[Rfam]
RNA: chrB-a RNA
Organism: Neoaquamicrobium microcysteis
RNA sequence: UUCAUGGGGACCGCGGUCUCCCCACGAGGCUCCGGCCCAAGAAUCGCGUCCAGCAACCCGGCAACGGAGGACGCGCCAUG
Number, nucleotide and partner (000 for none) at each position: 001u000002u000003c000004a000005u024006g023007g022008g021009g020010a019011c000012c000013g000014c000015g000016g000017u000018c000019u010020c009021c008022c007023c006024a005025c000026g000027a000028g000029g000030c000031u000032c000033c000034g000035g000036c000037c000038c000039a000040a000041g000042a000043a000044u000045c000046g074047c073048g072049u071050c070051c069052a000053g000054c000055a000056a000057c000058c000059c000060g000061g000062c000063a000064a000065c000066g000067g000068a000069g051070g050071a049072c048073g047074c046075g000076c000077c000078a000079u000080g000